[Rfam]
RNA sequence: CGCGGGACGACCCGCGCAUCGGGUACCGGAUGGGGACGGCCCCG
Numbered sequence: 001c002g003c004g005g006g007a008c009g010a011c012c013c014g015c016g017c018a019u020c021g022g023g024u025a026c027c028g029g030a031u032g033g034g035g036a037c038g039g040c041c042c043c044g
Base pairs, nucleotide, nucleotide: 001016002015003014004013005012006011031044032043033042034041035040